[Rfam]
RNA sequence: AACCAUUGGAGAGACUUAUUGAAUUAAGCACCGAAGGAGCAAACCUAUAUAUAGGUGAAACUCUCAGGUAAAAGGACAAUGGCUUAAA
Numbered sequence: 001a002a003c004c005a006u007u008g009g010a011g012a013g014a015c016u017u018a019u020u021g022a023a024u025u026a027a028g029c030a031c032c033g034a035a036g037g038a039g040c041a042a043a044c045c046u047a048u049a050u051a052u053a054g055g056u057g058a059a060a061c062u063c064u065c066a067g068g069u070a071a072a073a074g075g076a077c078a079a080u081g082g083c084u085u086a087a088a
Base pairs, nucleotide, nucleotide: 001084003082004081005080006079007078008077015028016027017026018025030069031068032067033065034064037063038062039061043056044055

The family of this 88-nucleotide RNA sequence from Thomasclavelia spiroformis is "Glycine riboswitch aptamer". A search with the family's covariance model found it, with a score of 63 bits. The base pairs follow the family's consensus structure.